Rfam assigns this 134-nucleotide RNA sequence from Drosophila virilis to the family "Small nucleolar RNA psi28S-3316". The source organism's lineage runs through Eukaryota, Metazoa, Endopterygota, Schizophora and Drosophila. The sequence is in the family's curated seed alignment. Rfam describes the family as follows. psi28S-3316 is a member of the H/ACA class of snoRNA. This family is responsible for guiding the modification of uridine 3316 in Drosophila 28S rRNA to pseudouridine. Its family is annotated with RNA processing and nucleolus in the Gene Ontology.
RNA sequence: AGCACCUAAAAGCGUUUUCUUGAUUGCUUUUUAAACGCGCCUGAAAAUCGUAGCUGUGUGCUAGAGCAAUUGCUGCGGUUGCAAGUGUCUUGAUGCCAGUUAAUGCAUCAACUACAUUAACACCUCGCACAAGC
Numbered sequence: 001a002g003c004a005c006c007u008a009a010a011a012g013c014g015u016u017u018u019c020u021u022g023a024u025u026g027c028u029u030u031u032u033a034a035a036c037g038c039g040c041c042u043g044a045a046a047a048u049c050g051u052a053g054c055u056g057u058g059u060g061c062u063a064g065a066g067c068a069a070u071u072g073c074u075g076c077g078g079u080u081g082c083a084a085g086u087g088u089c090u091u092g093a094u095g096c097c098a099g100u101u102a103a104u105g106c107a108u109c110a111a112c113u114a115c116a117u118u119a120a121c122a123c124c125u126c127g128c129a130c131a132a133g134c
Stems, first nucleotide, its partner, number of pairs: 001062005006056001012051003015047005022038001074127002077124003084118004090111002093108004